[Rfam]
RNA sequence: AAGAGCCUCGGGUUAAUACAGACUGAGUAGAUUGACUCAAAAACGAA
Numbered sequence: 001a002a003g004a005g006c007c008u009c010g011g012g013u014u015a016a017u018a019c020a021g022a023c024u025g026a027g028u029a030g031a032u033u034g035a036c037u038c039a040a041a042a043a044c045g046a047a
Stems, first nucleotide, its partner, number of pairs: 008040001010038008
Record summary:
Plastid-rpl16 group II-D1 intron: a 47-nucleotide sequence from Iris gatesii. NCBI's taxonomy places the organism under Eukaryota, Streptophytina, Embryophyta, Euphyllophyta, Iris. On this family, see Richter et al., Plant Commun 2023: "Retrograde signaling in plants: A critical review focusing on the GUN pathway and beyond". About the family: Plastid-rpl16 is a non-coding RNA (ncRNA) recognised in plastids. It was recognised in and intronic region of a ribosome rpl16 gene. The base pairs follow the family's consensus structure, which was predicted with LocARNA.